[Rfam]
RNA sequence: UGUCGAAGUUCCAUCUACAAAUGGAUAAGACUUCGAUUUUAGUGUGUGUGAGUUUUUGAAAACUAAAAAAAGGAGCAAUAUCCAAUUUCUUGUUCUAUCAAGAGGAUUGGAUAUUGCU
Numbered sequence: 001u002g003u004c005g006a007a008g009u010u011c012c013a014u015c016u017a018c019a020a021a022u023g024g025a026u027a028a029g030a031c032u033u034c035g036a037u038u039u040u041a042g043u044g045u046g047u048g049u050g051a052g053u054u055u056u057u058g059a060a061a062a063c064u065a066a067a068a069a070a071a072g073g074a075g076c077a078a079u080a081u082c083c084a085a086u087u088u089c090u091u092g093u094u095c096u097a098u099c100a101a102g103a104g105g106a107u108u109g110g111a112u113a114u115u116g117c118u
Stems, first nucleotide, its partner, number of pairs: 010025005074118008083109003087104005
The family of this 118-nucleotide sequence from Hevea brasiliensis is "Plastid-psbA-1 3UTR RNA". Plastid psbA-1 is a non-coding RNA (ncRNA) present in plastids. The sequence is in the family's curated seed alignment.